[Rfam]
RNA: Interferon gamma 5' UTR regulatory element
RNA sequence: CAUUGUUCUGCUCCUCUGCAGAUCAGCCAUUAGCAAAGAACAAUCAGCUUAAGUCCUUUGGACCUGAUCAACGAUACCAGGGCUACCGAUUUGAACUCUUUUGGCUUACUCUCUCUGAAAUAAUGAAGUAUACAAGUUAUACACUGGCUUUCCUGCUUUCUAUCAUU
Numbered sequence: 001c002a003u004u005g006u007u008c009u010g011c012u013c014c015u016c017u018g019c020a021g022a023u024c025a026g027c028c029a030u031u032a033g034c035a036a037a038g039a040a041c042a043a044u045c046a047g048c049u050u051a052a053g054u055c056c057u058u059u060g061g062a063c064c065u066g067a068u069c070a071a072c073g074a075u076a077c078c079a080g081g082g083c084u085a086c087c088g089a090u091u092u093g094a095a096c097u098c099u100u101u102u103g104g105c106u107u108a109c110u111c112u113c114u115c116u117g118a119a120a121u122a123a124u125g126a127a128g129u130a131u132a133c134a135a136g137u138u139a140u141a142c143a144c145u146g147g148c149u150u151u152c153c154u155g156c157u158u159u160c161u162a163u164c165a166u167u
Stems, first nucleotide, its partner, number of pairs: 009070002012067002015118002018115001020112003025106005032100002035097001042091004047086001052084003057080002060077001119167003123163003128142005146157003